[Rfam]
RNA: TPP riboswitch aptamer (THI element)
Organism: Lentilactobacillus hilgardii
RNA sequence: UGAUGACAUUAGGGGAGCCCACCGGCUGAGACGUGAUUAAUAUGCGAACCCUUUGAACCUGAUCUGGUUAAAUCCAGCGUAGGAAAACUGUCGGCUUGGGACC
Numbered sequence: 001u002g003a004u005g006a007c008a009u010u011a012g013g014g015g016a017g018c019c020c021a022c023c024g025g026c027u028g029a030g031a032c033g034u035g036a037u038u039a040a041u042a043u044g045c046g047a048a049c050c051c052u053u054u055g056a057a058c059c060u061g062a063u064c065u066g067g068u069u070a071a072a073u074c075c076a077g078c079g080u081a082g083g084a085a086a087a088c089u090g091u092c093g094g095c096u097u098g099g100g101a102c103c
Stems, first nucleotide, its partner, number of pairs: 006091003010087001011052004017026003033045003058083004064077004